[Rfam]
RNA sequence: CUUUGGUAAAGGAAACCUUAUUGAAAAUAAGGGCGCAAAAUUAUCGGUCUAAAGUUCUGUUAGGAAGUAUGAUCACUGGGUUCCCGAA
Numbered sequence: 001c002u003u004u005g006g007u008a009a010a011g012g013a014a015a016c017c018u019u020a021u022u023g024a025a026a027a028u029a030a031g032g033g034c035g036c037a038a039a040a041u042u043a044u045c046g047g048u049c050u051a052a053a054g055u056u057c058u059g060u061u062a063g064g065a066a067g068u069a070u071g072a073u074c075a076c077u078g079g080g081u082u083c084c085c086g087a088a
Base pairs, nucleotide, nucleotide: 012036017031018030019029020028021027022026039082040081041080042079044078046076047073048072049071055066056065057064

Description:
The family of this 88-nucleotide sequence from Domibacillus iocasae is "c-di-GMP-I riboswitch aptamer". It scores 40 bits against the family's covariance model. The source organism's lineage runs through Bacteria, Bacillota, Bacilli, Bacillaceae and Domibacillus. GEMM was predicted in a large-scale screen for bacterial structured RNA regulatory elements. The family has 155 seed sequences and 5,092 matches in Rfam 15.1.